[Rfam]
The record is a 75-nucleotide sequence from Myotis myotis, which matches "mir-9229 microRNA precursor family" in Rfam.
Rfam 15.1 lists 27,225 matches to the family in 9 species.
Lineage of the source: Eukaryota > Eumetazoa > Dipnotetrapodomorpha > Boreoeutheria > Myotis.
The base pairs follow the family's consensus structure, which was predicted with RNAalifold.
RNA sequence: UGACACCCUUCUGGGGCAAGACUUGCUUCAGUGGGGCUACGGUGCUCACUGAGUCUGUCCCCUUAGUGUGUCCCU
Numbered sequence: 001u002g003a004c005a006c007c008c009u010u011c012u013g014g015g016g017c018a019a020g021a022c023u024u025g026c027u028u029c030a031g032u033g034g035g036g037c038u039a040c041g042g043u044g045c046u047c048a049c050u051g052a053g054u055c056u057g058u059c060c061c062c063u064u065a066g067u068g069u070g071u072c073c074c075u
Stems, first nucleotide, its partner, number of pairs: 002072005008066002013061006020055003028052008036043002